[Rfam]
RNA: L31-Actinobacteria ribosomal protein leader
Organism: Actinacidiphila rubida
RNA sequence: CUGGUCCCGGUUCACGCACCCGCAAUUCCGCGCGUGCGACCCGGUGCC
Dot-bracket structure: ..(((.((((....(((((.(((......))).)))))..)))).)))